[Rfam]
RNA sequence: CCGUGCUAGACGGGGAGUUGGCGGUGCCCUGUAACCCGCAAUCCGCCAUAGCGGGGUUGAAUUCCUGCCUUAGGUUGAAUCAUGUAAGGUCUGCCUUGUGAAAAUAGUGUUGACAACUGGGUCCUACGCAAUGGAAACCUAUGAAUUUGGUCAGGUCCGGAAGGAAGCAGCCAUAAGUAGUCCUAUCUAUGUGCCGGAGGAUCGCCUAGUUUGAGCUAGAUUUCACAAGUAACGCUUGGUUGGUCCAAUCAAUGGCAGGUGCACGG
Numbered sequence: 001c002c003g004u005g006c007u008a009g010a011c012g013g014g015g016a017g018u019u020g021g022c023g024g025u026g027c028c029c030u031g032u033a034a035c036c037c038g039c040a041a042u043c044c045g046c047c048a049u050a051g052c053g054g055g056g057u058u059g060a061a062u063u064c065c066u067g068c069c070u071u072a073g074g075u076u077g078a079a080u081c082a083u084g085u086a087a088g089g090u091c092u093g094c095c096u097u098g099u100g101a102a103a104a105u106a107g108u109g110u111u112g113a114c115a116a117c118u119g120g121g122u123c124c125u126a127c128g129c130a131a132u133g134g135a136a137a138c139c140u141a142u143g144a145a146u147u148u149g150g151u152c153a154g155g156u157c158c159g160g161a162a163g164g165a166a167g168c169a170g171c172c173a174u175a176a177g178u179a180g181u182c183c184u185a186u187c188u189a190u191g192u193g194c195c196g197g198a199g200g201a202u203c204g205c206c207u208a209g210u211u212u213g214a215g216c217u218a219g220a221u222u223u224c225a226c227a228a229g230u231a232a233c234g235c236u237u238g239g240u241u242g243g244u245c246c247a248a249u250c251a252a253u254g255g256c257a258g259g260u261g262c263a264c265g266g
Stems, first nucleotide, its partner, number of pairs: 001266006009058003012030004017025003035055005064259006073250005079244004085238004092231002096228006104221002106217003115211008123200003127196002129191002132189004139180004148173004156165003